The family of this 35-nucleotide sequence is "DUF805b RNA".

[Rfam]
RNA sequence: UCAGAGGAUUCCGAAAAUCUGUAAAAGAGUAGGAC
Numbered sequence: 001u002c003a004g005a006g007g008a009u010u011c012c013g014a015a016a017a018u019c020u021g022u023a024a025a026a027g028a029g030u031a032g033g034a035c
Base pairs, nucleotide, nucleotide: 002021003020004019005018010034011033012032